This 99-nucleotide sequence from Oceanidesulfovibrio indonesiensis belongs to the Rfam family "c-di-GMP-I-GGC riboswitch aptamer". The match comes from Rfam's covariance-model search (64 bits). Rfam 15.1 lists 1,298 matches to the family in 717 species.

[Rfam]
RNA sequence: UGGUUUCAGGCCAAACCCGUUGCAAAGCGGGGACGGAAAGCCACGGGUCUCAUUGAUCGCGCCGUAUGCGGACAAUGGGAGAUCGCCGGGCUGCCCACA
Number, nucleotide and partner (000 for none) at each position: 001u099002g000003g096004u000005u000006u000007c000008a000009g000010g000011c036012c035013a000014a000015a000016c031017c030018c029019g028020u027021u026022g000023c000024a000025a000026a021027g020028c019029g018030g017031g016032g000033a000034c085035g012036g011037a000038a000039a092040g091041c090042c089043a000044c088045g087046g086047g083048u082049c081050u080051c079052a000053u000054u000055g000056a000057u000058c000059g000060c000061g000062c000063c000064g000065u000066a000067u000068g000069c000070g000071g000072a000073c000074a000075a000076u000077g000078g000079g051080a050081g049082a048083u047084c000085g034086c046087c045088g044089g042090g041091c040092u039093g000094c000095c000096c003097a000098c000099a001